mir-9/mir-79 microRNA precursor family: a 78-nucleotide RNA sequence from Octopus sinensis. A reference for the family is Sempere et al. (2003), "Temporal regulation of microRNA expression in Drosophila melanogaster mediated by hormonal signals and broad-Complex gene activity", Dev Biol. The match comes from Rfam's covariance-model search (64 bits). Rfam 15.1 lists 5,647 matches to the family in 934 species. Pairs were carried over by alignment from the consensus structure, which was predicted with RNAalifold.
RNA sequence: AACACCAUCUCUUCGGUUAUCUGGCUAUUUGAAAACGAUAGCGUUUUCAAAUAGCCAGAUAACCGAAGAGAUGGUGUU
Dot-bracket structure: (((((.((((((((((((((((((((.((((((............)))))).)))))))))))))))))))).)))))